Description
Bacterial RNase P class B: a 336-nucleotide RNA sequence from Acetonema longum. The family's RNA type in Rfam is ribozyme. For this family Rfam cites "Ribonuclease P: unity and diversity in a tRNA processing ribozyme" (Frank and Pace, Annu Rev Biochem, 1998). About the family: Ribonuclease P (RNase P) is a ubiquitous endoribonuclease, found in archaea, bacteria and eukarya as well as chloroplasts and mitochondria. The match comes from Rfam's covariance-model search (192 bits).
[Rfam]
RNA sequence: GAGUACGAGGAAUCGCGGCAGAUCGAACGGUUUGCUGAGGAAAGUCCAUGCUUCCACAACCUGGGAUGGUUGUAAUGAUCGUGCCUAUCGCAAGAUAGGGCAGGAGGGCAGCGGCGCUCCUGACAACGGCCAAAUCCACUCCCUGAGUGGAAAGUAGCCAUAAAGUGCCACAGAAAUCAGACAGGCUGGCGACGGCCUGGUGCAAGCGGUAAACUUCACGAGGAAGAAACCCAGUGUGUAGGGGAGCCUCUCAACGGGAAACAGAACUGGAGAGAGGAACGCCGUAAUCGCGGCGUUAGAGAAAUGAUUCCAUAGAACAGAAAAUGGCUUACAGUU
Dot-bracket structure: ....(((.((((((.((((((..........))))))....[[[.[[[[.(((((((((((......)))))).....(((((((((((....))))))(((((((..........)))))).)((.(((.....((((((...))))))......))).....(((((............(((((((....)))))))........)))..))))))))))))))...(((........)))...((((((...................))))))((((((((....))))))))........))))))............]]]]]]].).)).